This 116-nucleotide RNA sequence from Paeniglutamicibacter cryotolerans belongs to the Rfam family "SAM (S-adenosyl methionine) riboswitch aptamer".

RNA sequence: AAUCAAGAGCCCCCACCGCAAGGCCCUGGCCGGUUGGGCAGCAACCCCCUUCGUCAUAGCGGGGUGCUCCAGGUGAGGAUUCGACGCCACCAUCAGGACCGGCGUAAGUAUGGCGA
Dot-bracket structure: ((((....(.(((.((.....((......)).)).))))(((..(((.((.......))..))).))).........))))..(((((.((....))...)))))...........
Numbered sequence: 001a002a003u004c005a006a007g008a009g010c011c012c013c014c015a016c017c018g019c020a021a022g023g024c025c026c027u028g029g030c031c032g033g034u035u036g037g038g039c040a041g042c043a044a045c046c047c048c049c050u051u052c053g054u055c056a057u058a059g060c061g062g063g064g065u066g067c068u069c070c071a072g073g074u075g076a077g078g079a080u081u082c083g084a085c086g087c088c089a090c091c092a093u094c095a096g097g098a099c100c101g102g103c104g105u106a107a108g109u110a111u112g113g114c115g116a
Stems, first nucleotide, its partner, number of pairs: 001081004009039001011038003015034002022031002040068003045064003049059002084105005090097002
The family is grouped with related families in Rfam's "SAM clan". A search with the family's covariance model found it, with a score of 66 bits. Pairs were carried over by alignment from the consensus structure, which is taken from published work. Taxonomically the source falls in Paeniglutamicibacter (Bacteria, Bacillati, Actinomycetes, Micrococcales).